[Rfam]
RT-18 RNA: an 83-nucleotide RNA sequence.
The family's consensus secondary structure is taken from published work.
Nucleotides: 083
Base pairs, nucleotide, nucleotide: 001012002011003010004009020074021073022072023071031069032068033067034066035065036064037063043058044057045054046053
Number, partner (000 for none) and nucleotide at each position: 001012c002011a003010c004009c005000g006000c007000u008000c009004g010003g011002u012001g013000a014000a015000a016000a017000u018000u019000u020074c021073g022072c023071c024000g025000c026000a027000g028000g029000g030000a031069c032068a033067c034066g035065g036064c037063c038000a039000a040000g041000u042000a043058a044057g045054c046053c047000c048000g049000a050000u051000a052000u053046g054045g055000a056000u057044u058043u059000g060000a061000a062000a063037g064036g065035c066034c067033g068032u069031g070000a071023g072022g073021u074020g075000a076000a077000u078000a079000a080000g081000a082000a083000a